[Rfam]
Rfam assigns this 51-nucleotide RNA from Sulfitobacter sabulilitoris to the family "SAM/SAH riboswitch aptamer".
RNA sequence: AUCGUGUCACAACGGCUUCCUGACGUGGCACUUGAUCUUUUUACUGGAGCA
Numbered sequence: 001a002u003c004g005u006g007u008c009a010c011a012a013c014g015g016c017u018u019c020c021u022g023a024c025g026u027g028g029c030a031c032u033u034g035a036u037c038u039u040u041u042u043a044c045u046g047g048a049g050c051a
Base pairs, nucleotide, nucleotide: 004031005030006029007028008027009026010025013022014021015050016049017048019047020046